[Rfam]
RNA sequence: UGGAAAUGAUGAAUUUAUUUAAUCCGUGUUUCAGCUGAUCUCGUGAUUAACAUUAUUGGAAGUUCUGAUCCA
Numbered sequence: 001u002g003g004a005a006a007u008g009a010u011g012a013a014u015u016u017a018u019u020u021a022a023u024c025c026g027u028g029u030u031u032c033a034g035c036u037g038a039u040c041u042c043g044u045g046a047u048u049a050a051c052a053u054u055a056u057u058g059g060a061a062g063u064u065c066u067g068a069u070c071c072a
Stems, first nucleotide, its partner, number of pairs: 001072004
RNA: Small nucleolar RNA SNORD18
Organism: Patiria miniata